[Rfam]
RNA sequence: AUUUAGCCCCGAUUGAAGCUUGUAUCCUUUUGGCUCAUUUUUCUUGAGCCAAAAGAUACUGCGAAAAGCGGGAUUAUGG
Number, nucleotide and partner (000 for none) at each position: 001a000002u000003u000004u000005a000006g000007c000008c000009c071010c070011g069012a000013u067014u066015g000016a000017a000018g062019c061020u000021u000022g000023u000024a057025u056026c055027c000028u000029u000030u052031u051032g050033g049034c048035u047036c046037a045038u000039u000040u000041u000042u000043c000044u000045u037046g036047a035048g034049c033050c032051a031052a030053a000054a000055g026056a025057u024058a000059c000060u000061g019062c018063g000064a000065a000066a014067a013068g000069c011070g010071g009072g000073a000074u000075u000076a000077u000078g000079g000
Shown here is a 79-nucleotide sequence from Flavobacterium psychrophilum, a member of the family "Flavo-1 RNA". Rfam classes the family as a small RNA. Lineage of the source: Bacteria > Pseudomonadati > Flavobacteriia > Flavobacterium > Flavobacterium psychrophilum. Rfam 15.1 lists 7,497 matches to the family in 411 species.